The family of this 100-nucleotide RNA from Antrihabitans auranticaus is "Glycine riboswitch aptamer". Its Rfam clan is "Glycine riboswitch clan". It scores 61 bits against the family's covariance model.

[Rfam]
RNA sequence: CGCCGCCGUAUGGGAGAGUUCCGGCCCCGCAAGGGAGUCGGACGCCGAAGGAGCAGCACCUCCCCGUCAAUCUCUCAGGCACACGGACCGUACGGGCUUC
Numbered sequence: 001c002g003c004c005g006c007c008g009u010a011u012g013g014g015a016g017a018g019u020u021c022c023g024g025c026c027c028c029g030c031a032a033g034g035g036a037g038u039c040g041g042a043c044g045c046c047g048a049a050g051g052a053g054c055a056g057c058a059c060c061u062c063c064c065c066g067u068c069a070a071u072c073u074c075u076c077a078g079g080c081a082c083a084c085g086g087a088c089c090g091u092a093c094g095g096g097c098u099u100c
Base pairs, nucleotide, nucleotide: 006095007094008093009092010091011090012089013088020042021041022040023039024038025037044080045079046078047076048075051074052073053072058067059066